The family of this 79-nucleotide RNA sequence from Lupinus albus is "Small nucleolar RNA R160". A reference for the family is Chen et al. (2003), "The high diversity of snoRNAs in plants: identification and comparative study of 120 snoRNA genes from Oryza sativa", Nucleic Acids Res. snoR160 is a C/D box small nucleolar RNA, which acts as a methylation guide for 25S ribosomal RNA in plants. snoR160 has been alternatively named snoZ270 in rice. It is annotated as a C/D-box small nucleolar RNA. Its family is annotated with RNA processing and nucleolus in the Gene Ontology.

RNA sequence: AGCAAAAUGAUGAGGUCUUAAUAUCUGAAUUUCAUGUUGAAUCCUUAUUUCAAAUGGUCUUCAAAGUUCUCUGAUUGCU
Numbered sequence: 001a002g003c004a005a006a007a008u009g010a011u012g013a014g015g016u017c018u019u020a021a022u023a024u025c026u027g028a029a030u031u032u033c034a035u036g037u038u039g040a041a042u043c044c045u046u047a048u049u050u051c052a053a054a055u056g057g058u059c060u061u062c063a064a065a066g067u068u069c070u071c072u073g074a075u076u077g078c079u
Stems, first nucleotide, its partner, number of pairs: 001079005

It scores 78 bits against the family's covariance model.